[Rfam]
RNA: Ribosomal protein L10 leader
Organism: [Ruminococcus] lactaris
RNA sequence: AAUAUACACUAGCAACUGCCGAAGACAGUAGGUGCUGAAAAGCGUAAGUAGUGAACGCCUACCGAGGAAGAAUGAAUUUUUACAUCUGUAUGAAUUUAUGUGCUUUCGUGUCUUUGGAUACGAAAGCUUUUUAAGUUUCAGC
Numbered sequence: 001a002a003u004a005u006a007c008a009c010u011a012g013c014a015a016c017u018g019c020c021g022a023a024g025a026c027a028g029u030a031g032g033u034g035c036u037g038a039a040a041a042g043c044g045u046a047a048g049u050a051g052u053g054a055a056c057g058c059c060u061a062c063c064g065a066g067g068a069a070g071a072a073u074g075a076a077u078u079u080u081u082a083c084a085u086c087u088g089u090a091u092g093a094a095u096u097u098a099u100g101u102g103c104u105u106u107c108g109u110g111u112c113u114u115u116g117g118a119u120a121c122g123a124a125a126g127c128u129u130u131u132u133a134a135g136u137u138u139c140a141g142c
Stems, first nucleotide, its partner, number of pairs: 028062006034043003102127010